The family of this 104-nucleotide sequence from Arachis duranensis is "Plant small nucleolar RNA R71". Pairs were carried over by alignment from the consensus structure, which was predicted with PFOLD.

RNA sequence: AUGUCAGAUGGACAUCUUUUGGUCAACUGCUUGUAUCUUUCCCAAGCUUCAUAGAGGGAUUCACCAUCUUUUUGUUUAAAGGUUUGAACAUCCACUCUCAACUU
Numbered sequence: 001a002u003g004u005c006a007g008a009u010g011g012a013c014a015u016c017u018u019u020u021g022g023u024c025a026a027c028u029g030c031u032u033g034u035a036u037c038u039u040u041c042c043c044a045a046g047c048u049u050c051a052u053a054g055a056g057g058g059a060u061u062c063a064c065c066a067u068c069u070u071u072u073u074g075u076u077u078a079a080a081g082g083u084u085u086g087a088a089c090a091u092c093c094a095c096u097c098u099c100a101a102c103u104u
Stems, first nucleotide, its partner, number of pairs: 001104001003102002006098001054071002057068001
The source organism's lineage runs through Eukaryota, Embryophyta, rosids, dalbergioids sensu lato and Arachis. The family has 25 seed sequences and 278,378 matches in Rfam 15.1. Its family is annotated with nucleolus and RNA processing in the Gene Ontology.